[Rfam]
RNA sequence: UAGGGAGGUCGGGGCCAGGAACCCCCACCUGAGCCCAGGGUAACUCUUCGUGUGGGGGGAAA
Numbered sequence: 001u002a003g004g005g006a007g008g009u010c011g012g013g014g015c016c017a018g019g020a021a022c023c024c025c026c027a028c029c030u031g032a033g034c035c036c037a038g039g040g041u042a043a044c045u046c047u048u049c050g051u052g053u054g055g056g057g058g059g060a061a062a
Stems, first nucleotide, its partner, number of pairs: 008041003012036004016031004023059004
The family of this 62-nucleotide RNA from Nannospalax galili is "Gag/pol translational readthrough site". A search with the family's covariance model found it, with a score of 71 bits. Lineage of the source: Eukaryota > Deuterostomia > Amniota > Eutheria > Nannospalax. Rfam 15.1 lists 3,368 matches to the family in 94 species. The base pairs follow the family's consensus structure, which is taken from published work. By type it is a cis-regulatory element.